Description:
Shown here is a 76-nucleotide RNA from Salix koriyanagi, a member of the family "Small nucleolar RNA Z122". The family's consensus secondary structure was predicted with PFOLD. The organism belongs to Salix, within Eukaryota.

RNA sequence: UUUGGGAAAUGAUGCCAAGAUUCAAACAGAGACGCCAGCUGCUGAUUAAUCUAUUGCCCGUCAGUCUGAUCCAAAA
Numbered sequence: 001u002u003u004g005g006g007a008a009a010u011g012a013u014g015c016c017a018a019g020a021u022u023c024a025a026a027c028a029g030a031g032a033c034g035c036c037a038g039c040u041g042c043u044g045a046u047u048a049a050u051c052u053a054u055u056g057c058c059c060g061u062c063a064g065u066c067u068g069a070u071c072c073a074a075a076a
Base pairs, nucleotide, nucleotide: 001076002075003074005072006071007070